[Rfam]
RNA: RNase MRP
RNA sequence: CUCUCGCUCCAAAAAUCGCAAUCAAAGCUCACACACCGACAGCAUCUCGUGUGCUCGUCUAUGUACAUACAGCUUUGGGAGAAAGUCCCCGGACGCCUUGCACUUGCUGCAAGUCAGCGGAAACGCGCCGCCACAGAAGCAUUUUGCGGCUUAUCCCCUCGACACCUCCAUCCUCCUUCAUCACCCUCUGUCGUCUGCACUCUUGUCUGGAAGCGUCAUCGCUCGGAUCGCACCUGGCCUGGGGACACGUCGCUUCCGAGCGGCGGCUCGGUAACGAGAGACGAGGAUAUGAGUCUGCUUUCCUAGUCAGCCGGUCUUGCUGCUUUGGCGCCGAAGGUCAGGAGGAGAUAGGGGGAUCACUGGUGCGGGACAAGUUGGGCUCAAGGUCAAGAGGCGGAGCUUAUUGUCGUGGUCAACAGAUAUGCGAUUGCUCGCGUCUUGCACCUUUCCUCUGAAACUCUUCUUGGACUGGUGCUGGAUUGUGAGUAACUCGAUGGGGCUUAUUCUUGAUGCGAGA
Numbered sequence: 001c002u003c004u005c006g007c008u009c010c011a012a013a014a015a016u017c018g019c020a021a022u023c024a025a026a027g028c029u030c031a032c033a034c035a036c037c038g039a040c041a042g043c044a045u046c047u048c049g050u051g052u053g054c055u056c057g058u059c060u061a062u063g064u065a066c067a068u069a070c071a072g073c074u075u076u077g078g079g080a081g082a083a084a085g086u087c088c089c090c091g092g093a094c095g096c097c098u099u100g101c102a103c104u105u106g107c108u109g110c111a112a113g114u115c116a117g118c119g120g121a122a123a124c125g126c127g128c129c130g131c132c133a134c135a136g137a138a139g140c141a142u143u144u145u146g147c148g149g150c151u152u153a154u155c156c157c158c159u160c161g162a163c164a165c166c167u168c169c170a171u172c173c174u175c176c177u178u179c180a181u182c183a184c185c186c187u188c189u190g191u192c193g194u195c196u197g198c199a200c201u202c203u204u205g206u207c208u209g210g211a212a213g214c215g216u217c218a219u220c221g222c223u224c225g226g227a228u229c230g231c232a233c234c235u236g237g238c239c240u241g242g243g244g245a246c247a248c249g250u251c252g253c254u255u256c257c258g259a260g261c262g263g264c265g266g267c268u269c270g271g272u273a274a275c276g277a278g279a280g281a282c283g284a285g286g287a288u289a290u291g292a293g294u295c296u297g298c299u300u301u302c303c304u305a306g307u308c309a310g311c312c313g314g315u316c317u318u319g320c321u322g323c324u325u326u327g328g329c330g331c332c333g334a335a336g337g338u339c340a341g342g343a344g345g346a347g348a349u350a351g352g353g354g355g356a357u358c359a360c361u362g363g364u365g366c367g368g369g370a371c372a373a374g375u376u377g378g379g380c381u382c383a384a385g386g387u388c389a390a391g392a393g394g395c396g397g398a399g400c401u402u403a404u405u406g407u408c409g410u411g412g413u414c415a416a417c418a419g420a421u422a423u424g425c426g427a428u429u430g431c432u433c434g435c436g437u438c439u440u441g442c443a444c445c446u447u448u449c450c451u452c453u454g455a456a457a458c459u460c461u462u463c464u465u466g467g468a469c470u471g472g473u474g475c476u477g478g479a480u481u482g483u484g485a486g487u488a489a490c491u492c493g494a495u496g497g498g499g500c501u502u503a504u505u506c507u508u509g510a511u512g513c514g515a516g517a
Base pairs, nucleotide, nucleotide: 002517003516004515005514006513007512008510009509011507014429015428016427017426018425019424022079023077024076025075026074027073028072038059039058040057041055042054043053044052083502084501085500087499088498089497090496117126118125119124256271257270258269259268260267261266315392316391317390318389319388324385325384326383327382328380329379431486432485433484434483435482436481